[Rfam]
RNA sequence: ACGUGAGGCUCACUUAGAGCCUCGCUAACGUGGGGAGGUUAGGCAUCCACUUGGGUAGCGACAGCAUCCCUUCUGGAGAAACGGCAUCCAGAGGCCGGGUUAUCAGCCCUGGUCGGAACCGUUUC
Numbered sequence: 001a002c003g004u005g006a007g008g009c010u011c012a013c014u015u016a017g018a019g020c021c022u023c024g025c026u027a028a029c030g031u032g033g034g035g036a037g038g039u040u041a042g043g044c045a046u047c048c049a050c051u052u053g054g055g056u057a058g059c060g061a062c063a064g065c066a067u068c069c070c071u072u073c074u075g076g077a078g079a080a081a082c083g084g085c086a087u088c089c090a091g092a093g094g095c096c097g098g099g100u101u102a103u104c105a106g107c108c109c110u111g112g113u114c115g116g117a118a119c120c121g122u123u124u125c
Stems, first nucleotide, its partner, number of pairs: 005023007025042005031036001046077004053071001054069002058067001060065001078125007093114007
RNA: LAGLIDADG-2 RNA